[Rfam]
The family of this 228-nucleotide RNA from Acuticoccus sediminis is "permuted transfer-messenger RNA". A search with the family's covariance model found it, with a score of 143 bits. Rfam classes the family as a non-coding RNA gene. Rfam links the family to the GO term RNA catabolic process. Bacterial tmRNA, also known as 10Sa RNA or SsrA, is named for its dual tRNA and mRNA-like properties.
RNA sequence: GGCGAUAAACGAAGUGCGGAAUAAGCCUUUCGGACCCGGGGGCGGUACCCGGCGCCUCCACCCAAGCGGCCUGCUCCUUCCUUGCGGGGAGCCGGCCGUUUCGGCGGGGGCGAAAUAGGAUCGACGAGGGUGUAAAGGCAUUUUUUUCGCUCGGCAUGGUUCCGCCGAUAUCGGGCCACCUUUGUAGUUGCGAAUGACAACUAUGCCGAGGCACGUCUCGCUGCGUAA
Numbered sequence: 001g002g003c004g005a006u007a008a009a010c011g012a013a014g015u016g017c018g019g020a021a022u023a024a025g026c027c028u029u030u031c032g033g034a035c036c037c038g039g040g041g042g043c044g045g046u047a048c049c050c051g052g053c054g055c056c057u058c059c060a061c062c063c064a065a066g067c068g069g070c071c072u073g074c075u076c077c078u079u080c081c082u083u084g085c086g087g088g089g090a091g092c093c094g095g096c097c098g099u100u101u102c103g104g105c106g107g108g109g110g111c112g113a114a115a116u117a118g119g120a121u122c123g124a125c126g127a128g129g130g131u132g133u134a135a136a137g138g139c140a141u142u143u144u145u146u147u148c149g150c151u152c153g154g155c156a157u158g159g160u161u162c163c164g165c166c167g168a169u170a171u172c173g174g175g176c177c178a179c180c181u182u183u184g185u186a187g188u189u190g191c192g193a194a195u196g197a198c199a200a201c202u203a204u205g206c207c208g209a210g211g212c213a214c215g216u217c218u219c220g221c222u223g224c225g226u227a228a
Base pairs, nucleotide, nucleotide: 001151002150003149004148005147014141015140016139017138026130027129028128030127031126032125036052037051038050039049040048053112054111055110056109057108058107059106152167153166154165155164